[Rfam]
RNA sequence: AGUGAAGUCACUGGAGGCAGCGGUUCAUCGAUCACUUUGUGCAAAUUUUGUUGUGAAAAAUAACACAAAAUACAUGAAUCGAUCGAUAAACCUCUGCAUCCAGCGCUCACUCC
Numbered sequence: 001a002g003u004g005a006a007g008u009c010a011c012u013g014g015a016g017g018c019a020g021c022g023g024u025u026c027a028u029c030g031a032u033c034a035c036u037u038u039g040u041g042c043a044a045a046u047u048u049u050g051u052u053g054u055g056a057a058a059a060a061u062a063a064c065a066c067a068a069a070a071u072a073c074a075u076g077a078a079u080c081g082a083u084c085g086a087u088a089a090a091c092c093u094c095u096g097c098a099u100c101c102a103g104c105g106c107u108c109a110c111u112c113c
Stems, first nucleotide, its partner, number of pairs: 013101003018096003022092004027087007036078003
Rfam assigns this 113-nucleotide RNA sequence from Citrus sinensis to the family "MIR162_1 microRNA precursor family". Pairs were carried over by alignment from the consensus structure, which was predicted with RNAalifold. The literature on the family includes a 2002 paper in Genes Dev by Reinhart et al., "MicroRNAs in plants". Rfam 15.1 lists 270 matches to the family in 158 species. It is one of the family's seed sequences. Lineage of the source: Eukaryota > Tracheophyta > Magnoliopsida > malvids > Citrus.